[Rfam]
Nucleotides: 116
Stems, first nucleotide, its partner, number of pairs: 003077004009067007017059003027053004032048003097115006
Number, partner (000 for none) and nucleotide at each position: 001000u002000g003077c004076g005075g006074u007000a008000g009067g010066g011065g012064g013063c014062u015061g016000c017059g018058a019057c020000a021000c022000g023000g024000a025000a026000u027053u028052u029051c030050u031000a032048u033047c034046u035000u036000g037000c038000c039000u040000u041000u042000u043000a044000c045000c046034a047033g048032a049000c050030a051029g052028a053027a054000c055000c056000g057019g058018u059017u060000u061015c062014g063013g064012c065011c066010c067009u068000u069000a070000a071000u072000a073000u074006a075005u076004c077003g078000c079000a080000u081000g082000c083000u084000a085000u086000u087000u088000u089000u090000u091000g092000g093000c094000u095000u096000u097115g098114c099113a100112u101111c102110u103000u104000a105000u106000u107000u108000c109000g110102a111101g112100a113099u114098g115097c116000u